The record is a 70-nucleotide RNA sequence from Danio rerio, which matches "mir-24 microRNA precursor family" in Rfam. The source organism's lineage runs through Eukaryota, Chordata, Otophysi, Cyprinoidei and Danio.
[Rfam]
RNA sequence: AGCUCCGGUGCCUUCUGAGCUGAUAUCAGUUGUAGUAAAUCACUGGCUCAGUUCAGCAGGAACAGGAGUG
Numbered sequence: 001a002g003c004u005c006c007g008g009u010g011c012c013u014u015c016u017g018a019g020c021u022g023a024u025a026u027c028a029g030u031u032g033u034a035g036u037a038a039a040u041c042a043c044u045g046g047c048u049c050a051g052u053u054c055a056g057c058a059g060g061a062a063c064a065g066g067a068g069u070g
Stems, first nucleotide, its partner, number of pairs: 003068004008063002011060003015056009026046005

The sequence is in the family's curated seed alignment. Pairs were carried over by alignment from the consensus structure, which was predicted with RNAalifold. From the family's description: This family represents the microRNA (miRNA) mir-24 family. miRNAs are transcribed as ~70nt precursors (modelled here) and subsequently processed by the Dicer enzyme to give a ~22nt product.